[Rfam]
RNA: DUF3800-V RNA
RNA sequence: AUAUCAGAGCGGUAAAUCCGUUGUGAGUUGUUUAAGGUGUUCCCUUCCAUCGGUGGGCUAUAGCCUUAACGUUAUAAUUCAUAAGGUUCGCUCUUUUU
Numbered sequence: 001a002u003a004u005c006a007g008a009g010c011g012g013u014a015a016a017u018c019c020g021u022u023g024u025g026a027g028u029u030g031u032u033u034a035a036g037g038u039g040u041u042c043c044c045u046u047c048c049a050u051c052g053g054u055g056g057g058c059u060a061u062a063g064c065c066u067u068a069a070c071g072u073u074a075u076a077a078u079u080c081a082u083a084a085g086g087u088u089c090g091c092u093c094u095u096u097u098u
Base pairs, nucleotide, nucleotide: 001098003096009091010090024081025080026079027078028077031076032069033068034067035066036065037064038063043057044056045055047053048052